[Rfam]
RNA sequence: GUCUCUAAUGAUGAUUUAAAUUUGAAAACUUUCGUUUUUCUGAGAAGGUAACUCGAUGCGGAUUUCUAUAUGGAGACCUGAGCUGCAGAGAC
Number, nucleotide and partner (000 for none) at each position: 001g000002u000003c090004u089005c088006u087007a000008a000009u000010g000011a000012u000013g000014a000015u000016u000017u000018a000019a000020a000021u000022u000023u000024g000025a000026a000027a000028a000029c000030u000031u000032u000033c000034g000035u000036u000037u000038u000039u000040c000041u000042g000043a000044g000045a000046a000047g000048g000049u000050a000051a000052c000053u000054c000055g000056a000057u000058g000059c000060g000061g000062a000063u000064u000065u000066c000067u000068a000069u000070a000071u000072g000073g000074a000075g000076a000077c000078c000079u000080g000081a000082g000083c000084u000085g000086c000087a006088g005089a004090g003091a000092c000
RNA: Small nucleolar RNA Z159/U59